[Rfam]
RNA sequence: CCUCUGGAGCGUCAUACCAAACGUGAUUAGCUAAGGCGAAAGCGGACGCUAUGAAUGAGGAA
Numbered sequence: 001c002c003u004c005u006g007g008a009g010c011g012u013c014a015u016a017c018c019a020a021a022c023g024u025g026a027u028u029a030g031c032u033a034a035g036g037c038g039a040a041a042g043c044g045g046a047c048g049c050u051a052u053g054a055a056u057g058a059g060g061a062a
Stems, first nucleotide, its partner, number of pairs: 001060004009049005022044003030037002
Dot-bracket structure: ((((....(((((........(((.....((....))....)))))))).......))))..